[Rfam]
RNA sequence: GGUUCGGGAGCGGUCGGUGGGACGUCCGCAAGAAUGGAACCUUGCCCCCUGUUUCGUGAGCGGCGCGCGGCCGGGGCCCGACGGCAUUGCGCG
Numbered sequence: 001g002g003u004u005c006g007g008g009a010g011c012g013g014u015c016g017g018u019g020g021g022a023c024g025u026c027c028g029c030a031a032g033a034a035u036g037g038a039a040c041c042u043u044g045c046c047c048c049c050u051g052u053u054u055c056g057u058g059a060g061c062g063g064c065g066c067g068c069g070g071c072c073g074g075g076g077c078c079c080g081a082c083g084g085c086a087u088u089g090c091g092c093g
Stems, first nucleotide, its partner, number of pairs: 001041005010029004015024002064093005070085004
Rhodo-rpoB RNA: a 93-nucleotide RNA sequence from Rhodovulum sp. ES.010. The organism belongs to Rhodovulum, within Bacteria.